[Rfam]
RNA sequence: UGCAAGCCCAACCAAUGCCACACACGUAUCGGCACCGUCUUCGGGGUGCUGUAGCCGUCCCUCUCCUAGCCUCGAGGGCGCUACGGUCGAAGCCGGGGGUACGUGGAGGUCCCAAC
Number, nucleotide and partner (000 for none) at each position: 001u000002g000003c000004a000005a000006g000007c000008c000009c000010a000011a000012c000013c000014a000015a000016u000017g000018c000019c000020a000021c000022a000023c105024a104025c103026g102027u101028a100029u099030c098031g000032g000033c000034a000035c096036c095037g094038u000039c092040u091041u090042c089043g088044g000045g000046g000047u000048g087049c086050u085051g084052u083053a082054g081055c080056c000057g000058u000059c000060c000061c000062u000063c000064u000065c000066c000067u000068a000069g000070c000071c000072u000073c000074g000075a000076g000077g000078g000079c000080g055081c054082u053083a052084c051085g050086g049087u048088c043089g042090a041091a040092g039093c000094c037095g036096g035097g000098g030099g029100u028101a027102c026103g025104u024105g023106g000107a000108g000109g000110u000111c000112c000113c000114a000115a000116c000
The family of this 116-nucleotide sequence from Dyella choica is "t44 RNA". The organism belongs to Dyella, within Bacteria. From the family's description: This family consists of a number of bacterial RNA genes of between 135 and 170 bases in length. The t44 gene has been identified in several species of enteric bacteria but homologs have also been identified in Pseudomonas and Coxiella species. The t44 gene is found between the map and rpsB genes in all species in the full alignment apart from Shigella flexneri. The function of this RNA is unknown. Rfam classes the family as a small RNA. On this family, see Tjaden et al., Nucleic Acids Res 2002: "Transcriptome analysis of Escherichia coli using high-density oligonucleotide probe arrays".